The record is a 206-nucleotide RNA, which matches "raiA RNA" in Rfam.
The family's RNA type in Rfam is riboswitch.
The sequence is in the family's curated seed alignment.

RNA sequence: UUAAGUUAGGUCUGUGGUUGAAAGUCGAUGCCAGUCGCAGGCAAAGCGAUCCACGUAAAUCAAAUAAAAUGUUUGACGAGCAUGGUGCGGUUUAGAAGUAAGUCCUGCCGCAAAGAUGCGAGAGAAUUAGUAGUGAGAGGUUAAGUCCGGGUAGCAAAAGUUCCAGCAGGCGAGUGUGGGGUCAAAGACCAGGUCAGCUAGCUUGA
Numbered sequence: 001u002u003a004a005g006u007u008a009g010g011u012c013u014g015u016g017g018u019u020g021a022a023a024g025u026c027g028a029u030g031c032c033a034g035u036c037g038c039a040g041g042c043a044a045a046g047c048g049a050u051c052c053a054c055g056u057a058a059a060u061c062a063a064a065u066a067a068a069a070u071g072u073u074u075g076a077c078g079a080g081c082a083u084g085g086u087g088c089g090g091u092u093u094a095g096a097a098g099u100a101a102g103u104c105c106u107g108c109c110g111c112a113a114a115g116a117u118g119c120g121a122g123a124g125a126a127u128u129a130g131u132a133g134u135g136a137g138a139g140g141u142u143a144a145g146u147c148c149g150g151g152u153a154g155c156a157a158a159a160g161u162u163c164c165a166g167c168a169g170g171c172g173a174g175u176g177u178g179g180g181g182u183c184a185a186a187g188a189c190c191a192g193g194u195c196a197g198c199u200a201g202c203u204u205g206a
Stems, first nucleotide, its partner, number of pairs: 001206009012197003015191005028177003031041001033092007050085002060075001062073002083184001104170005109120004124163004133155002139148002